Annotation
This 94-nucleotide RNA sequence from Protea cynaroides belongs to the Rfam family "Small nucleolar RNA U61".

RNA sequence: AUGUGGUGAUGAAGAAUAUAUUGUGUACACAAGAUGAGUCUCUUCGAAGUCAAGUCAGUGAUGGCAACACAACCCUCUAAGAAGUUCUGAGCAU
Number, nucleotide and partner (000 for none) at each position: 001a094002u093003g092004u091005g000006g000007u000008g000009a000010u000011g000012a000013a000014g000015a000016a000017u000018a000019u000020a000021u000022u000023g000024u000025g000026u000027a000028c000029a000030c000031a000032a000033g000034a000035u000036g000037a000038g000039u000040c000041u000042c000043u000044u000045c000046g000047a000048a000049g000050u000051c000052a000053a000054g000055u000056c000057a000058g000059u000060g000061a000062u000063g000064g000065c000066a000067a000068c000069a000070c000071a000072a000073c000074c000075c000076u000077c000078u000079a000080a000081g000082a000083a000084g000085u000086u000087c000088u000089g000090a000091g004092c003093a002094u001
A search with the family's covariance model found it, with a score of 62 bits. NCBI's taxonomy places the organism under Eukaryota, Viridiplantae, Embryophyta, Magnoliopsida, Protea. The family's RNA type in Rfam is C/D-box small nucleolar RNA. Pairs were carried over by alignment from the consensus structure, which was predicted with WAR. Its Rfam clan is "SNORD61 clan". Gene Ontology terms of the family: nucleolus and RNA processing. Rfam 15.1 lists 401 matches to the family in 204 species.